[Rfam]
A member of the RNA family "Small nucleolar RNA SNORD83" from Salmo trutta, 78 nucleotides long. Gene Ontology terms of the family: RNA processing and nucleolus. The family's consensus secondary structure was predicted with PFOLD. A search with the family's covariance model found it, with a score of 38 bits. Taxonomically the source falls in Salmo (Eukaryota, Actinopterygii, Actinopteri, Protacanthopterygii). On this family, see Jady and Kiss, Nucleic Acids Res 2000: "Characterisation of the U83 and U84 small nucleolar RNAs: two novel 2'-O-ribose methylation guide RNAs that lack complementarities to ribosomal RNAs".
Nucleotides: 078
Base pairs, nucleotide, nucleotide: 001077002076003075004074031041032040033039034038
Number, partner (000 for none) and nucleotide at each position: 001077g002076c003075c004074a005000c006000a007000g008000g009000a010000u011000g012000a013000c014000c015000u016000c017000a018000c019000a020000g021000a022000u023000g024000u025000g026000c027000a028000u029000u030000a031041g032040c033039g034038u035000u036000c037000u038034g039033c040032g041031c042000a043000g044000a045000g046000a047000u048000g049000a050000c051000c052000c053000a054000c055000c056000c057000u058000c059000u060000a061000c062000a063000c064000c065000c066000a067000a068000g069000g070000c071000u072000g073000a074004u075003g076002g077001c078000u